[Rfam]
Shown here is a 78-nucleotide sequence from Trichobilharzia regenti, a member of the family "mir-2162 microRNA precursor family".
Gene Ontology terms of the family: miRNA-mediated post-transcriptional gene silencing and RISC complex.
The family's consensus secondary structure was predicted with RNAalifold.
Lineage of the source: Eukaryota > Opisthokonta > Trematoda > Strigeidida > Trichobilharzia.
RNA sequence: CUAGGGGAUGAGUGGGAUGGUUGCAUACUUUACACACAACGAAAAUGUAUUAUGCAACGUUUCACUCUACUCCGGAGA
Numbered sequence: 001c002u003a004g005g006g007g008a009u010g011a012g013u014g015g016g017a018u019g020g021u022u023g024c025a026u027a028c029u030u031u032a033c034a035c036a037c038a039a040c041g042a043a044a045a046u047g048u049a050u051u052a053u054g055c056a057a058c059g060u061u062u063c064a065c066u067c068u069a070c071u072c073c074g075g076a077g078a
Stems, first nucleotide, its partner, number of pairs: 002075001004073004010067009020058008031049004